[Rfam]
RNA sequence: GGUUAUUUGGCAGUGCUGUUAGCUGAUUACAAUUUGGACCUAGUAAUCACUAACCUCACUACCAGCUGAAC
Dot-bracket structure: ..(((...((.((((..(((((.(((((((............))))))))))))..)))).))...)))..
Numbered sequence: 001g002g003u004u005a006u007u008u009g010g011c012a013g014u015g016c017u018g019u020u021a022g023c024u025g026a027u028u029a030c031a032a033u034u035u036g037g038a039c040c041u042a043g044u045a046a047u048c049a050c051u052a053a054c055c056u057c058a059c060u061a062c063c064a065g066c067u068g069a070a071c
Stems, first nucleotide, its partner, number of pairs: 003069003009063002012060004018054005024049007

The record is a 71-nucleotide RNA sequence from Clarias magur, which matches "mir-34 microRNA precursor family" in Rfam.
On this family, see Dostie et al., RNA 2003: "Numerous microRNPs in neuronal cells containing novel microRNAs".
Clan: mir-34 clan.
It scores 54 bits against the family's covariance model.
The base pairs follow the family's consensus structure, which was predicted with RNAalifold.
Rfam 15.1 lists 2,256 matches to the family in 820 species.